Rfam assigns this 77-nucleotide RNA sequence from Sulfitobacter marinus to the family "Singlet oxygen resistance RNA X".
The organism belongs to Sulfitobacter, within Bacteria.
On this family, see Peng et al., RNA Biol 2016: "Regulation of a polyamine transporter by the conserved 3' UTR-derived sRNA SorX confers resistance to singlet oxygen and organic hydroperoxides in Rhodobacter sphaeroides".
It scores 68 bits against the family's covariance model.
Gene Ontology term of the family: response to photooxidative stress.
About the family: SorX (RSs2461)like SorY is a singlet oxygen induced sRNA that counteracts oxidative stress by targeting mRNA for a transporter in Rhodobacter. It also has an impact on resistance against organic hydroperoxides. It targets SD sequence of potA mRNA via an aSD sequence. The aSD sequence and some neighbouring nucleotides are identical to the one of SorY (targets takP mRNA).
RNA sequence: AACCCGACUAUUGUAUCCGGGAUAUGAUACAUACCUCCCUGUUGGACUAGGCCGGGCCUUUGUGCCCGGUCUUUUUU
Numbered sequence: 001a002a003c004c005c006g007a008c009u010a011u012u013g014u015a016u017c018c019g020g021g022a023u024a025u026g027a028u029a030c031a032u033a034c035c036u037c038c039c040u041g042u043u044g045g046a047c048u049a050g051g052c053c054g055g056g057c058c059u060u061u062g063u064g065c066c067c068g069g070u071c072u073u074u075u076u077u
Base pairs, nucleotide, nucleotide: 012031013030014029015028016027017026050071051070052069053068054067055066056065057064